[Rfam]
RNA: Archaeal small subunit ribosomal RNA, nucleotides 505 to 867
Organism: Haloarcula argentinensis
RNA sequence: GGCCUAAAGCGUCCGUAGCUUGCUGUGUAAGUCCAUUGGGAAAUCGACCAGCUCAACUGGUCGGCGUCCGGUGGAAACUACCACCAGGCUUGGGGCCGAGAGACUCAAACGGGUACGUCCGGGGUAGGAGUGAAAUCCUGUAAUCCUGGACGGACCACCAAUGGGGAAACCACGUUGAGAGACCGGACCCGACAGUGAGGGACGAAAGCCAGGGUCUCGAACCGGAUUAGAUACCCGGGUAGUCCUGGCUGUAAACAAUGCUCGCUAGGUAUGUCACGCGCCAUGAGCACGUGAUGUGCCGUAGGGAAGACGAUAAGCGAGCCGCCUGGGAAGUACGUCUGCAAGGAUGAAACUUAAAGGAAU
Numbered sequence: 001g002g003c004c005u006a007a008a009g010c011g012u013c014c015g016u017a018g019c020u021u022g023c024u025g026u027g028u029a030a031g032u033c034c035a036u037u038g039g040g041a042a043a044u045c046g047a048c049c050a051g052c053u054c055a056a057c058u059g060g061u062c063g064g065c066g067u068c069c070g071g072u073g074g075a076a077a078c079u080a081c082c083a084c085c086a087g088g089c090u091u092g093g094g095g096c097c098g099a100g101a102g103a104c105u106c107a108a109a110c111g112g113g114u115a116c117g118u119c120c121g122g123g124g125u126a127g128g129a130g131u132g133a134a135a136u137c138c139u140g141u142a143a144u145c146c147u148g149g150a151c152g153g154a155c156c157a158c159c160a161a162u163g164g165g166g167a168a169a170c171c172a173c174g175u176u177g178a179g180a181g182a183c184c185g186g187a188c189c190c191g192a193c194a195g196u197g198a199g200g201g202a203c204g205a206a207a208g209c210c211a212g213g214g215u216c217u218c219g220a221a222c223c224g225g226a227u228u229a230g231a232u233a234c235c236c237g238g239g240u241a242g243u244c245c246u247g248g249c250u251g252u253a254a255a256c257a258a259u260g261c262u263c264g265c266u267a268g269g270u271a272u273g274u275c276a277c278g279c280g281c282c283a284u285g286a287g288c289a290c291g292u293g294a295u296g297u298g299c300c301g302u303a304g305g306g307a308a309g310a311c312g313a314u315a316a317g318c319g320a321g322c323c324g325c326c327u328g329g330g331a332a333g334u335a336c337g338u339c340u341g342c343a344a345g346g347a348u349g350a351a352a353c354u355u356a357a358a359g360g361a362a363u
Base pairs, nucleotide, nucleotide: 001326002325003324009323011203012202013201014200016197018196019195020194022089023088024087025084026083027081028080030079031078032075033074034073035072036071037070038069039068040067045063046062047061048060049059050058051057093190094189095188096186097185098184104179105178106177107176109175110174111173112156113155116152117151118150119149120148121147122146123145127138128137129136164171165170208249209248210247211246212245213244218242222238223237224236225235260322261321262320263319264318265317268300269299270298271297272296273295274294275293276292277291278290280288281287304311328355329354330353337348338347339346340345